Rfam assigns this 95-nucleotide sequence from Senna tora to the family "mir-166 microRNA precursor family".
The match comes from Rfam's covariance-model search (83 bits).
Taxonomically the source falls in Senna (Eukaryota, Spermatophyta, Magnoliopsida, Mesangiospermae).
The base pairs follow the family's consensus structure, which was predicted with PFOLD.
Rfam's curators write: This family represents the plant microRNA (miRNA) precursor mir-166.
Gene Ontology terms of the family: RISC complex and miRNA-mediated post-transcriptional gene silencing.
RNA sequence: GUUGAGGGGAAUGCUGUCUGGUUCGAGACCAUUCUUCUGAAGCAAACAAUACUCAUUAAUUGAAUGAUCUCGGACCAGGCUUCAUUCCCCCCAGC
Dot-bracket structure: ((((.((((((((..((((((..(((...........................................)))..))))))..)))))))).))))
Numbered sequence: 001g002u003u004g005a006g007g008g009g010a011a012u013g014c015u016g017u018c019u020g021g022u023u024c025g026a027g028a029c030c031a032u033u034c035u036u037c038u039g040a041a042g043c044a045a046a047c048a049a050u051a052c053u054c055a056u057u058a059a060u061u062g063a064a065u066g067a068u069c070u071c072g073g074a075c076c077a078g079g080c081u082u083c084a085u086u087c088c089c090c091c092c093a094g095c
Stems, first nucleotide, its partner, number of pairs: 001095004006090008016080006024072003